Shown here is an 84-nucleotide RNA sequence from Saccharomyces cerevisiae, a member of the family "tRNA". Lineage of the source: Eukaryota > Ascomycota > saccharomyceta > Saccharomycotina > Saccharomyces. Pairs were carried over by alignment from the consensus structure, which is taken from published work. The sequence is in the family's curated seed alignment.
RNA sequence: GGAGGGUUGGCCGAGCGGUCUAAGGCGGCAGACUUAAGAUCUGUUGGACGGUUGUCCGCGCGAGUUCGAACCUCGCAUCCUUCA
Numbered sequence: 001g002g003a004g005g006g007u008u009g010g011c012c013g014a015g016c017g018g019u020c021u022a023a024g025g026c027g028g029c030a031g032a033c034u035u036a037a038g039a040u041c042u043g044u045u046g047g048a049c050g051g052u053u054g055u056c057c058g059c060g061c062g063a064g065u066u067c068g069a070a071c072c073u074c075g076c077a078u079c080c081u082u083c084a
Stems, first nucleotide, its partner, number of pairs: 001083007010026003028044005060076005
The family's RNA type in Rfam is transfer RNA.